[Rfam]
RNA sequence: CUUUAAAAAUCUGGAUCAAGCUGAAAAUUGAAACACAGAACAACGAAAGUUGUUCGUGAGUCUCUCAAAUUUUCGCAACACGAAGUGAAACAUCUUCGG
Numbered sequence: 001c002u003u004u005a006a007a008a009a010u011c012u013g014g015a016u017c018a019a020g021c022u023g024a025a026a027a028u029u030g031a032a033a034c035a036c037a038g039a040a041c042a043a044c045g046a047a048a049g050u051u052g053u054u055c056g057u058g059a060g061u062c063u064c065u066c067a068a069a070u071u072u073u074c075g076c077a078a079c080a081c082g083a084a085g086u087g088a089a090a091c092a093u094c095u096u097c098g099g
Stems, first nucleotide, its partner, number of pairs: 020076002023074007034058003038055007081098003085094001

The record is a 99-nucleotide sequence from Salmonella enterica, which matches "Salmonella enterica Typhi npcRNA 44" in Rfam. Pairs were carried over by alignment from the consensus structure, which was predicted with CMfinder. A reference for the family is Chinni et al. (2010), "Experimental identification and characterization of 97 novel npcRNA candidates in Salmonella enterica serovar Typhi", Nucleic Acids Res. NCBI's taxonomy places the organism under Bacteria, Enterobacteriaceae, Salmonella enterica, Salmonella enterica subsp. enterica, Salmonella enterica subsp. enterica serovar Newport. By type it is a non-coding RNA gene.